Rfam assigns this 57-nucleotide sequence from Erwinia sp. OLSSP12 to the family "ClpQY promoter". It is annotated as a cis-regulatory element. Gene Ontology term of the family: mRNA stabilization. The pairing is the family consensus, mapped onto this sequence. It scores 54 bits against the family's covariance model.
[Rfam]
RNA sequence: CCCCGCAGACUCAACUGCGGGGAUUCAUAUCCGAUUGCAACAAGGGGUCUGCCCGUG
Numbered sequence: 001c002c003c004c005g006c007a008g009a010c011u012c013a014a015c016u017g018c019g020g021g022g023a024u025u026c027a028u029a030u031c032c033g034a035u036u037g038c039a040a041c042a043a044g045g046g047g048u049c050u051g052c053c054c055g056u057g
Stems, first nucleotide, its partner, number of pairs: 001022008